[Rfam]
Rfam assigns this 131-nucleotide RNA from Tetrahymena malaccensis to the family "Tetrahymena snoRNA TtnuHACA8". It is one of the family's seed sequences.

RNA sequence: GGCAGUUAUGUGUACUCAUUUUGAUCAAUGUGAUUUAUGAGAUUACGGAAACUGCCAAAAACAAAUUAGAUUAUAUAAAGAAAUGUCUUAUACUAGUUAAUCUGUUUUGGACUCUUUGUAUACUCACAUUU
Numbered sequence: 001g002g003c004a005g006u007u008a009u010g011u012g013u014a015c016u017c018a019u020u021u022u023g024a025u026c027a028a029u030g031u032g033a034u035u036u037a038u039g040a041g042a043u044u045a046c047g048g049a050a051a052c053u054g055c056c057a058a059a060a061a062c063a064a065a066u067u068a069g070a071u072u073a074u075a076u077a078a079a080g081a082a083a084u085g086u087c088u089u090a091u092a093c094u095a096g097u098u099a100a101u102c103u104g105u106u107u108u109g110g111a112c113u114c115u116u117u118g119u120a121u122a123c124u125c126a127c128a129u130u131u
Stems, first nucleotide, its partner, number of pairs: 001056007010021001012019002029047007069125002072122010085112004094104003
The source organism's lineage runs through Eukaryota, Alveolata, Ciliophora, Tetrahymenina and Tetrahymena malaccensis.
For this family Rfam cites "Experimental identification and analysis of macronuclear non-coding RNAs from the ciliate Tetrahymena thermophila" (Andersen and Nielsen, Nucleic Acids Res, 2012).
The family's RNA type in Rfam is H/ACA-box small nucleolar RNA.